[Rfam]
RNA sequence: UGAUAUCAGGGUCAAAAAGUCGUUCGUGCUUGCACGAUAAGACUUUUGAACUUGGGACCCGCCAAACAUGAGAAAGUAGCGAUUUACGCAGUAAAUCAGCGGAUUUCGAAUGUUUGAGAAUUGUGGGAGCUGCUUUGCAGCGGAGCAAUUCGUGGAUAUCA
Numbered sequence: 001u002g003a004u005a006u007c008a009g010g011g012u013c014a015a016a017a018a019g020u021c022g023u024u025c026g027u028g029c030u031u032g033c034a035c036g037a038u039a040a041g042a043c044u045u046u047u048g049a050a051c052u053u054g055g056g057a058c059c060c061g062c063c064a065a066a067c068a069u070g071a072g073a074a075a076g077u078a079g080c081g082a083u084u085u086a087c088g089c090a091g092u093a094a095a096u097c098a099g100c101g102g103a104u105u106u107c108g109a110a111u112g113u114u115u116g117a118g119a120a121u122u123g124u125g126g127g128a129g130c131u132g133c134u135u136u137g138c139a140g141c142g143g144a145g146c147a148a149u150u151c152g153u154g155g156a157u158a159u160c161a
Stems, first nucleotide, its partner, number of pairs: 001161007010059004016046006023039001024037005063116007072107004079100002081097007118151007129141004
The record is a 161-nucleotide RNA from Blautia wexlerae, which matches "Clostridiales-1 RNA" in Rfam. NCBI's taxonomy places the organism under Bacteria, Bacillati, Clostridia, Lachnospirales, Blautia.